[Rfam]
Nucleotides: 095
Stems, first nucleotide, its partner, number of pairs: 006087008018064008038056001040055005065078005
Number, partner (000 for none) and nucleotide at each position: 001000a002000u003000g004000a005000a006087c007086c008085c009084u010083a011082c012081c013080c014000g015000c016000a017000a018064g019063c020062u021061a022060u023059g024058g025057c026000c027000a028000u029000c030000c031000a032000a033000g034000g035000u036000a037000a038056g039000u040055g041054c042053g043052g044051g045000c046000a047000a048000a049000a050000g051044c052043c053042c054041g055040c056038c057025g058024c059023c060022a061021u062020a063019g064018c065078g066077u067076c068075c069074c070000g071000c072000a073000a074069g075068g076067g077066a078065u079000a080013g081012g082011g083010u084009a085008g086007g087006g088000a089000a090000g091000g092000a093000g094000g095000a